[Rfam]
RNA sequence: GGCCGUCGGCCGUCUCCUCCUCCUAGAUGAACCGCCGACACGAAUGCAGCACACCCUCCUCCCGUGCUGCAUCUUAGAUAAGCCCGCCCAUCCUCCUCCCGGGCGGGCUUUUUCA
Numbered sequence: 001g002g003c004c005g006u007c008g009g010c011c012g013u014c015u016c017c018u019c020c021u022c023c024u025a026g027a028u029g030a031a032c033c034g035c036c037g038a039c040a041c042g043a044a045u046g047c048a049g050c051a052c053a054c055c056c057u058c059c060u061c062c063c064g065u066g067c068u069g070c071a072u073c074u075u076a077g078a079u080a081a082g083c084c085c086g087c088c089c090a091u092c093c094u095c096c097u098c099c100c101g102g103g104c105g106g107g108c109u110u111u112u113u114c115a
Stems, first nucleotide, its partner, number of pairs: 001036003005032002009028001011026001042073001044072008080110010
The record is a 115-nucleotide RNA from Nitratireductor aestuarii, which matches "Alphaproteobacterial ar14" in Rfam. The base pairs follow the family's consensus structure. Its family is annotated with biological process involved in symbiotic interaction in the Gene Ontology. Smr14C2 was renamed NfeR1 (Nodule Formation Efficiency RNA) highly expressed in salt stress and during the symbiotic interaction on legume roots. A search with the family's covariance model found it, with a score of 62 bits. Rfam classes the family as a small RNA. For this family Rfam cites "A survey of sRNA families in alpha-proteobacteria" (del Val et al., RNA Biol, 2012).